Shown here is a 105-nucleotide RNA sequence from Roseivirga pacifica, a member of the family "SAM riboswitch aptamer (S box leader)".
RNA sequence: UGCUUAUCAAGAAAGGCGGAGGGACUAGGCCCUUUGAUGCCUUAGCAACCUGGGUAAUACCUGGUGCUAACUCCUAGCCCCGAUCUCUCGGGGAAAAGAUGAGGC
Numbered sequence: 001u002g003c004u005u006a007u008c009a010a011g012a013a014a015g016g017c018g019g020a021g022g023g024a025c026u027a028g029g030c031c032c033u034u035u036g037a038u039g040c041c042u043u044a045g046c047a048a049c050c051u052g053g054g055u056a057a058u059a060c061c062u063g064g065u066g067c068u069a070a071c072u073c074c075u076a077g078c079c080c081c082g083a084u085c086u087c088u089c090g091g092g093g094a095a096a097a098g099a100u101g102a103g104g105c
Base pairs, nucleotide, nucleotide: 003103004102005101006100007099008098013043014042015041016040017039021032022031023030026076027075028074029073044068045067046066047065049064050063052061053060072097078093079092080091081090082089